Shown here is an 83-nucleotide RNA sequence from Alicycliphilus denitrificans, a member of the family "SAH (S-adenosyl-L-homocysteine) riboswitch aptamer". Gene Ontology terms of the family: S-adenosylhomocysteine metabolic process and regulation of gene expression. On this family, see Wang et al., Mol Cell 2008: "Riboswitches that sense S-adenosylhomocysteine and activate genes involved in coenzyme recycling".

[Rfam]
RNA sequence: GGUUCCGAGGAGCGUUGCAGCGUCCCCAGCUACCGGCGGGGCGUGAGGCUCGGAACCCAUUCUUGCAACGACGCUCACCCACG
Numbered sequence: 001g002g003u004u005c006c007g008a009g010g011a012g013c014g015u016u017g018c019a020g021c022g023u024c025c026c027c028a029g030c031u032a033c034c035g036g037c038g039g040g041g042c043g044u045g046a047g048g049c050u051c052g053g054a055a056c057c058c059a060u061u062c063u064u065g066c067a068a069c070g071a072c073g074c075u076c077a078c079c080c081a082c083g
Stems, first nucleotide, its partner, number of pairs: 002056007021043006
The base pairs follow the family's consensus structure, which is taken from published work. NCBI's taxonomy places the organism under Bacteria, Pseudomonadota, Betaproteobacteria, Burkholderiales, Alicycliphilus denitrificans.